[Rfam]
Nucleotides: 084
Base pairs, nucleotide, nucleotide: 012037013036017032018031021028022027040078041077042076043075045074046073047072048069049068050067055063056062
Number, partner (000 for none) and nucleotide at each position: 001000a002000u003000u004000a005000u006000g007000u008000a009000a010000a011000g012037g013036c014000a015000a016000a017032c018031c019000u020000u021028c022027c023000g024000a025000a026000a027022g028021g029000u030000u031018g032017g033000g034000a035000c036013g037012c038000a039000a040078a041077g042076c043075u044000u045074c046073a047072g048069g049068u050067c051000u052000a053000a054000g055063g056062u057000u058000u059000u060000u061000u062056a063055c064000u065000a066000u067050g068049a069048c070000a071000g072047c073046u074045g075043g076042g077041c078040u079000a080000c081000c082000a083000u084000a
This 84-nucleotide RNA sequence from Acetanaerobacterium elongatum belongs to the Rfam family "c-di-GMP-I riboswitch aptamer". The match comes from Rfam's covariance-model search (75 bits).